[Rfam]
RNA sequence: AGAACAACAAAAUGGAAUAAAUAUUUUUUAAAAAAGAGGCAUCAUCAAACACAGGUGCUAACAGCAAAGGGUACCUCGUUGCCUUUGGAGGACUUGUUGUGCCCAUCAAAGUGAACUUAGAGGUUCUACACAC
Numbered sequence: 001a002g003a004a005c006a007a008c009a010a011a012a013u014g015g016a017a018u019a020a021a022u023a024u025u026u027u028u029u030a031a032a033a034a035a036g037a038g039g040c041a042u043c044a045u046c047a048a049a050c051a052c053a054g055g056u057g058c059u060a061a062c063a064g065c066a067a068a069g070g071g072u073a074c075c076u077c078g079u080u081g082c083c084u085u086u087g088g089a090g091g092a093c094u095u096g097u098u099g100u101g102c103c104c105a106u107c108a109a110a111g112u113g114a115a116c117u118u119a120g121a122g123g124u125u126c127u128a129c130a131c132a133c
Base pairs, nucleotide, nucleotide: 003059005057006056008054019045021042022041024039025038026037027036028035071126073124074123075122076121077120083111084110085109086108087107088106090104091103093101
Background
A member of the RNA family "Small nucleolar RNA SNORA68" from Erinaceus europaeus, 133 nucleotides long. Lineage of the source: Eukaryota > Bilateria > Deuterostomia > Boreoeutheria > Erinaceus. About the family: U68 is a member of the H/ACA class of small nucleolar RNAs (snoRNAs) which act as guides in the the modification of uridines to pseudouridines. The literature on the family includes a 1997 paper in Genes Dev by Ganot et al., "The family of box ACA small nucleolar RNAs is defined by an evolutionarily conserved secondary structure and ubiquitous sequence elements essential for RNA accumulation". The family's RNA type in Rfam is H/ACA-box small nucleolar RNA.